RNase MRP: a 258-nucleotide RNA sequence from Sitophilus oryzae. By type it is a ribozyme. Pairs were carried over by alignment from the consensus structure, which is taken from published work. The family is grouped with related families in Rfam's "RNaseP clan".
RNA sequence: AGGUCCUGCCAAGUCCGAUUAUCGGAGCAACAUACGGAGUUCUUGUAACUCUCUCUUGGCUCUGUGGAAGGUCCCCGGACCCCGGGUAGAAAGUACCGCCGAUCGUACUCGGCUAGUCGACGCCCGCUGCCGGAAAAGCAGGGCGCUUGCACGGUAAGGGCGCGAUGUUAGUCACAGCACAGGUAUGUGAGGAGCCUCCUAGCUCUUCCUUCGGGAGGGGUGCGGGGGUAACAAAACGGGGCCCACUCUGGCAGGACU
Dot-bracket structure: .((((((((((..[[[.[[...((((((........(((((.....))))).......)))))).....((.((((........((((.....))))(((((......))))).(.(...(((((.....(.(...(((.....)))....).)...))))).).)....................]]..]]].(((((........................))))).........)))))).....))))))))))
Lineage of the source: Eukaryota > Bilateria > Altocrustacea > Dryophthorinae > Sitophilus.
The family has 66 seed sequences and 3,510 matches in Rfam 15.1.
About the family: RNase MRP is an enzymatically active ribonucleoprotein with two distinct roles in eukaryotes.